[Rfam]
RNA sequence: GCGCAUCUCUAAAACCCCUUGGUUUCCUUGGUGUGGAUCUCAAGACAAGAAGAGCUGCUAGAGCAAAUCAGUGAAGUUUCCAAUGAGCAGAGAACGCAUUGGCUCUGCUCUAUUUCACCUUUCACACAGUU
Numbered sequence: 001g002c003g004c005a006u007c008u009c010u011a012a013a014a015c016c017c018c019u020u021g022g023u024u025u026c027c028u029u030g031g032u033g034u035g036g037a038u039c040u041c042a043a044g045a046c047a048a049g050a051a052g053a054g055c056u057g058c059u060a061g062a063g064c065a066a067a068u069c070a071g072u073g074a075a076g077u078u079u080c081c082a083a084u085g086a087g088c089a090g091a092g093a094a095c096g097c098a099u100u101g102g103c104u105c106u107g108c109u110c111u112a113u114u115u116c117a118c119c120u121u122u123c124a125c126a127c128a129g130u131u
Base pairs, nucleotide, nucleotide: 003058004057005056008051010049018044019043020042021041022040025037026036062131063130064129068126071123073121074120085110086109087108088107089106090105092103094099